tRNA: a 71-nucleotide sequence from Deinococcus cellulosilyticus. The source organism's lineage runs through Bacteria, Thermotogati, Deinococci, Deinococcus and Deinococcus cellulosilyticus. A search with the family's covariance model found it, with a score of 62 bits. Rfam classes the family as a transfer RNA. The family's consensus secondary structure is taken from published work.
RNA sequence: UGGGGUAUCGUCUAACGGCAGGACAACGGUCUUUGGAACCGUCGGUCAUGGUUCGAAUCCAUGUACCCCAG
Numbered sequence: 001u002g003g004g005g006u007a008u009c010g011u012c013u014a015a016c017g018g019c020a021g022g023a024c025a026a027c028g029g030u031c032u033u034u035g036g037a038a039c040c041g042u043c044g045g046u047c048a049u050g051g052u053u054c055g056a057a058u059c060c061a062u063g064u065a066c067c068c069c070a071g
Stems, first nucleotide, its partner, number of pairs: 001070007010024004026042005047063005